Small nucleolar RNA R11/Z151: an 83-nucleotide RNA sequence from Papaver somniferum. It scores 77 bits against the family's covariance model. By type it is a C/D-box small nucleolar RNA.
RNA sequence: GGGCUGAUGAUGAUAAAUUUCAUAUCUUAGCGGAUUUCAGUGAGAACUUAUCAAUGAUCUGAAUGUUACACACACCGAAGCCU
Numbered sequence: 001g002g003g004c005u006g007a008u009g010a011u012g013a014u015a016a017a018u019u020u021c022a023u024a025u026c027u028u029a030g031c032g033g034a035u036u037u038c039a040g041u042g043a044g045a046a047c048u049u050a051u052c053a054a055u056g057a058u059c060u061g062a063a064u065g066u067u068a069c070a071c072a073c074a075c076c077g078a079a080g081c082c083u
Base pairs, nucleotide, nucleotide: 001083002082003081004080005079
Description
For this family Rfam cites "Identification of 66 box C/D snoRNAs in Arabidopsis thaliana: extensive gene duplications generated multiple isoforms predicting new ribosomal RNA 2'-O-methylation sites" (Barneche et al., J Mol Biol, 2001). Lineage of the source: Eukaryota > Streptophyta > Streptophytina > Mesangiospermae > Papaver. Its family is annotated with RNA processing and nucleolus in the Gene Ontology.